[Rfam]
RNA sequence: UAGGAGCAUGACAAAUUAGAUUUUUCCUCCUGAUUUUCAGUUUUUUCCUCAUGAAAAAAUUUAAAUCUAACUAAAAAUGCUAAAAAUUAAGAGUAAAAAUCUAAUUUGUCAUGACGUG
Numbered sequence: 001u002a003g004g005a006g007c008a009u010g011a012c013a014a015a016u017u018a019g020a021u022u023u024u025u026c027c028u029c030c031u032g033a034u035u036u037u038c039a040g041u042u043u044u045u046u047c048c049u050c051a052u053g054a055a056a057a058a059a060u061u062u063a064a065a066u067c068u069a070a071c072u073a074a075a076a077a078u079g080c081u082a083a084a085a086a087u088u089a090a091g092a093g094u095a096a097a098a099a100u101c102u103a104a105u106u107u108g109u110c111a112u113g114a115c116g117u118g
Stems, first nucleotide, its partner, number of pairs: 003117001007113019027093003031089007039081002043077004
Rfam assigns this 118-nucleotide RNA sequence from Gossypium lobatum to the family "MIR7504 microRNA precursor family". The base pairs follow the family's consensus structure, which was predicted with RNAalifold. A search with the family's covariance model found it, with a score of 95 bits.